[Rfam]
RNA: Selenocysteine insertion sequence 1
Organism: Trichechus manatus
RNA sequence: UUCGCAUUAAUGAAGACUACACAGAAAACCUUUGUAAGGAUUUGUGUGGAUCUGAUAUUUGGCAAA
Numbered sequence: 001u002u003c004g005c006a007u008u009a010a011u012g013a014a015g016a017c018u019a020c021a022c023a024g025a026a027a028a029c030c031u032u033u034g035u036a037a038g039g040a041u042u043u044g045u046g047u048g049g050a051u052c053u054g055a056u057a058u059u060u061g062g063c064a065a066a
Stems, first nucleotide, its partner, number of pairs: 001066002004063002015052002017049008030039003